[Rfam]
RNA sequence: AAACUAGCCGGACACACGUAAGUUGCGAGUACCGGAAGUUCAGCCUUACAC
Numbered sequence: 001a002a003a004c005u006a007g008c009c010g011g012a013c014a015c016a017c018g019u020a021a022g023u024u025g026c027g028a029g030u031a032c033c034g035g036a037a038g039u040u041c042a043g044c045c046u047u048a049c050a051c
Base pairs, nucleotide, nucleotide: 001040002039008035009034011033012030013029018049019048020047021046022045

The record is a 51-nucleotide RNA from Wheat yellow dwarf virus, which matches "Exoribonuclease-resistant RNA (xrRNA) plant-infecting virus (class 3)" in Rfam.
About the family: Exoribonuclease-resistant RNA (xrRNA) plant-infecting virus (class 3) is a ncRNA that was reported in Plant viruses.
Its family is annotated with viral RNA genome replication in the Gene Ontology.
For this family Rfam cites "The pseudoknot structure of a viral RNA reveals a conserved mechanism for programmed exoribonuclease resistance" (Gezelle et al., bioRxiv [Preprint], 2024).
Taxonomically the source falls in Polerovirus (Viruses, Riboviria, Orthornavirae, Sobelivirales).